[Rfam]
RNA sequence: GAGAGUAGGCGUUGGCGGUUGCAGACCAGUUAGCUUAACUGAUUUGAGGAAAGUCCGGACUCCCGAAAGACCAGACUUGCUGGAUAACGUCCAGUGCGAGCGAUCGUGAGGAUAGUGCCACAGAAAAAUACCGCCAAGAUUGGGGACUGGGGACUAGGGGUUGGGGACUGGGGAAGAAACUUCCCAAUCCCUAAUCCCCCAUACCCAAUACCCAACUCUUGGUAAGGGUGCAAAGGUGCGGUAAGAGCGCACCAGCAGUAUCGAGAGGUACUGGCUCGGUAAACCCCGGUUGGGAGCAAGGCCGAAGGAACUAUGGUUGGUCUUUUACCAGUUCCGCUAUCAGAGAGCCGCUAGAGGCGUUUGGUAACAAACGUCCCAGAUAGAUAAUCGCCCUCGUGUAAAGCAAUUUACACAGAGAACAGAACCCGGCUUACCACCAACUCUCUCCU
Numbered sequence: 001g002a003g004a005g006u007a008g009g010c011g012u013u014g015g016c017g018g019u020u021g022c023a024g025a026c027c028a029g030u031u032a033g034c035u036u037a038a039c040u041g042a043u044u045u046g047a048g049g050a051a052a053g054u055c056c057g058g059a060c061u062c063c064c065g066a067a068a069g070a071c072c073a074g075a076c077u078u079g080c081u082g083g084a085u086a087a088c089g090u091c092c093a094g095u096g097c098g099a100g101c102g103a104u105c106g107u108g109a110g111g112a113u114a115g116u117g118c119c120a121c122a123g124a125a126a127a128a129u130a131c132c133g134c135c136a137a138g139a140u141u142g143g144g145g146a147c148u149g150g151g152g153a154c155u156a157g158g159g160g161u162u163g164g165g166g167a168c169u170g171g172g173g174a175a176g177a178a179a180c181u182u183c184c185c186a187a188u189c190c191c192u193a194a195u196c197c198c199c200c201a202u203a204c205c206c207a208a209u210a211c212c213c214a215a216c217u218c219u220u221g222g223u224a225a226g227g228g229u230g231c232a233a234a235g236g237u238g239c240g241g242u243a244a245g246a247g248c249g250c251a252c253c254a255g256c257a258g259u260a261u262c263g264a265g266a267g268g269u270a271c272u273g274g275c276u277c278g279g280u281a282a283a284c285c286c287c288g289g290u291u292g293g294g295a296g297c298a299a300g301g302c303c304g305a306a307g308g309a310a311c312u313a314u315g316g317u318u319g320g321u322c323u324u325u326u327a328c329c330a331g332u333u334c335c336g337c338u339a340u341c342a343g344a345g346a347g348c349c350g351c352u353a354g355a356g357g358c359g360u361u362u363g364g365u366a367a368c369a370a371a372c373g374u375c376c377c378a379g380a381u382a383g384a385u386a387a388u389c390g391c392c393c394u395c396g397u398g399u400a401a402a403g404c405a406a407u408u409u410a411c412a413c414a415g416a417g418a419a420c421a422g423a424a425c426c427c428g429g430c431u432u433a434c435c436a437c438c439a440a441c442u443c444u445c446u447c448c449u
Stems, first nucleotide, its partner, number of pairs: 001445006008438002011434001014392007022046004027041004051432003055429004060296004069324002074291003078288002080094005095109001096107004110286002115284002117280003131227002133223007141215001235253006255275001256273007300349003303345001307335006315329003319325001356375008
The family of this 449-nucleotide sequence from Nostoc sp. PCC 7120 = FACHB-418 is "Bacterial RNase P class A". The base pairs follow the family's consensus structure, which is taken from published work. Ribonuclease P (RNase P) is a ubiquitous endoribonuclease, found in archaea, bacteria and eukarya as well as chloroplasts and mitochondria. By type it is a ribozyme.